[Rfam]
RNA sequence: ACCAGGCGUGUAAACAUCCUACACUCUCAGCUGUGACAUCACCAAGCUGGGAGAGGGAUGUUUACUCUCUUUGU
Numbered sequence: 001a002c003c004a005g006g007c008g009u010g011u012a013a014a015c016a017u018c019c020u021a022c023a024c025u026c027u028c029a030g031c032u033g034u035g036a037c038a039u040c041a042c043c044a045a046g047c048u049g050g051g052a053g054a055g056g057g058a059u060g061u062u063u064a065c066u067c068u069c070u071u072u073g074u
Base pairs, nucleotide, nucleotide: 002073004071005070006069008067010065011064012063013062014061015060016059017058018057019056020055024053025052026051027050028049029048030047031046032045
Source information:
A member of the RNA family "mir-30 microRNA precursor family" from Sinocyclocheilus grahami, 74 nucleotides long. Rfam links the family to the GO terms RISC complex and gene silencing by miRNA. About the family: This family consists of the mammalian microRNA (miRNA) precursor mir-30a. Animal miRNAs are transcribed as ~70nt precursors and subsequently processed by the Dicer enzyme to give a ~22nt product. In this case the mature sequence comes from both the 3' (miR-30) and 5' (mir-97-6) arms of the precursor.